[Rfam]
Description:
Rfam assigns this 140-nucleotide sequence from Crossiella cryophila to the family "c-di-AMP riboswitch aptamer (ydaO/yuaA leader)".
RNA sequence: CCAAACCCCGAGCGAAACUGCAACUGGACAGGGACGGGGGAACCACCUUCCGGACGAGCACUCAGCGUCCUUGGGGUGAAGCCGGUGCGAGCCGGCCGGGCCAGCACGAUCGGUCCGAACCCGACAGCUCACCUCGUAGG
Numbered sequence: 001c002c003a004a005a006c007c008c009c010g011a012g013c014g015a016a017a018c019u020g021c022a023a024c025u026g027g028a029c030a031g032g033g034a035c036g037g038g039g040g041a042a043c044c045a046c047c048u049u050c051c052g053g054a055c056g057a058g059c060a061c062u063c064a065g066c067g068u069c070c071u072u073g074g075g076g077u078g079a080a081g082c083c084g085g086u087g088c089g090a091g092c093c094g095g096c097c098g099g100g101c102c103a104g105c106a107c108g109a110u111c112g113g114u115c116c117g118a119a120c121c122c123g124a125c126a127g128c129u130c131a132c133c134u135c136g137u138a139g140g
Stems, first nucleotide, its partner, number of pairs: 001140002006033003034137006044073002074122003082095004098116004